[Rfam]
A member of the RNA family "Small nucleolar RNA SNORA71" from Chlorocebus sabaeus, 116 nucleotides long. Rfam links the family to the GO terms RNA processing and nucleolus. The family's consensus secondary structure was predicted with PFOLD. The members of this family belong to the H/ACA class of snoRNAs which bind a number of proteins (including dyskerin, Gar1p and Nop10p) to form snoRNP complexes. This class of snoRNAs are thought to guide the sites of modification of uridines to pseudouridines by forming direct base pairing interactions with substrate RNAs. The organism belongs to Chlorocebus, within Eukaryota.

RNA sequence: GUCUGCAUUUGAAAGCGAUCAUCAGCUGCCUAUUGACGCCUUGGUCAUUGAUAGUACAGGCAGUUGAACUGCAGAAAGCAUUCUCCGUGUUUGGAAACGCUGAUGCUUUUCUCACA
Numbered sequence: 001g002u003c004u005g006c007a008u009u010u011g012a013a014a015g016c017g018a019u020c021a022u023c024a025g026c027u028g029c030c031u032a033u034u035g036a037c038g039c040c041u042u043g044g045u046c047a048u049u050g051a052u053a054g055u056a057c058a059g060g061c062a063g064u065u066g067a068a069c070u071g072c073a074g075a076a077a078g079c080a081u082u083c084u085c086c087g088u089g090u091u092u093g094g095a096a097a098c099g100c101u102g103a104u105g106c107u108u109u110u111c112u113c114a115c116a
Stems, first nucleotide, its partner, number of pairs: 001061005007055003014049002017046005025039002071113001073112004077107003089098003